The record is a 113-nucleotide sequence from Oryza sativa, which matches "MIR444 microRNA precursor family" in Rfam. Rfam links the family to the GO terms miRNA-mediated post-transcriptional gene silencing and RISC complex. Taxonomically the source falls in Oryza (Eukaryota, Streptophyta, Mesangiospermae, Liliopsida). The family's consensus secondary structure was predicted with RNAalifold. A reference for the family is Yao et al. (2007), "Cloning and characterization of microRNAs from wheat (Triticum aestivum L.)", Genome Biol. It is one of the family's seed sequences.
RNA sequence: GAGGCGGCAAGCUAGAGACAGCAACUGCAUAUCUUGCAAGAAAAUCGGUUUUAUGGCCAUACCGAUGAUUUUCUUGCAAGCUGUGCAGUUGUUGUCUCAAGCUUGCUGCCUCC
Numbered sequence: 001g002a003g004g005c006g007g008c009a010a011g012c013u014a015g016a017g018a019c020a021g022c023a024a025c026u027g028c029a030u031a032u033c034u035u036g037c038a039a040g041a042a043a044a045u046c047g048g049u050u051u052u053a054u055g056g057c058c059a060u061a062c063c064g065a066u067g068a069u070u071u072u073c074u075u076g077c078a079a080g081c082u083g084u085g086c087a088g089u090u091g092u093u094g095u096c097u098c099a100a101g102c103u104u105g106c107u108g109c110c111u112c113c
Stems, first nucleotide, its partner, number of pairs: 008105005015098002018095002028085003033080001035078005042071003046067001